[Rfam]
RNA sequence: GACCGCGUGGGCGACGAAUACAAGACCCGAAAGGGGAAUAAGUCCGCCCUCCUAUGUGGGUUCUUAACCGCGCGUCCGCCCAUUU
Numbered sequence: 001g002a003c004c005g006c007g008u009g010g011g012c013g014a015c016g017a018a019u020a021c022a023a024g025a026c027c028c029g030a031a032a033g034g035g036g037a038a039u040a041a042g043u044c045c046g047c048c049c050u051c052c053u054a055u056g057u058g059g060g061u062u063c064u065u066a067a068c069c070g071c072g073c074g075u076c077c078g079c080c081c082a083u084u085u
Base pairs, nucleotide, nucleotide: 001077004074005073006072007071008070009069013044014043015042017039026035027034028033046061047060048059049058

Rfam assigns this 85-nucleotide sequence from Neisseria meningitidis to the family "sRNA-Xcc1". The literature on the family includes a 2011 paper in RNA Biol by Chen et al., "sRNA-Xcc1, an integron-encoded transposon- and plasmid-transferred trans-acting sRNA, is under the positive control of the key virulence regulators HrpG and HrpX of Xanthomonas campestris pathovar campestris". It is one of the family's seed sequences.